[Rfam]
RNA sequence: GUCCCGGUGAAGAUUCUCAGACCAUAGGAAGUGCCGUAUGACACUGUAAACAACAGCUGGUUCUCUCCACUGCAAGUGUCCUCCGUUGACCAUAGCCUUUGUGGUUUGGUCUAUGCAGGAAUCUCCAUUUGCAGCUGGUUUGAAUCAUCUGUGUGCGUGAUUUUAAGCGGGUCUCUGAGGGAU
Numbered sequence: 001g002u003c004c005c006g007g008u009g010a011a012g013a014u015u016c017u018c019a020g021a022c023c024a025u026a027g028g029a030a031g032u033g034c035c036g037u038a039u040g041a042c043a044c045u046g047u048a049a050a051c052a053a054c055a056g057c058u059g060g061u062u063c064u065c066u067c068c069a070c071u072g073c074a075a076g077u078g079u080c081c082u083c084c085g086u087u088g089a090c091c092a093u094a095g096c097c098u099u100u101g102u103g104g105u106u107u108g109g110u111c112u113a114u115g116c117a118g119g120a121a122u123c124u125c126c127a128u129u130u131g132c133a134g135c136u137g138g139u140u141u142g143a144a145u146c147a148u149c150u151g152u153g154u155g156c157g158u159g160a161u162u163u164u165a166a167g168c169g170g171g172u173c174u175c176u177g178a179g180g181g182a183u
Stems, first nucleotide, its partner, number of pairs: 001183005070134009079120004084115002088111005094106004